Shown here is an 87-nucleotide RNA sequence from Triplophysa rosa, a member of the family "Small nucleolar RNA SNORD53/SNORD92".
Rfam classes the family as a C/D-box small nucleolar RNA.
RNA sequence: AUGCACAUGAUGAUGCUAGAGAAUGGUUUCGCUUUCAUGACCUGAUGUCACAUGAUGCCACACUUCUCUUGGCUGUCUGAUACGCAU
Dot-bracket structure: ((((...............................................................................))))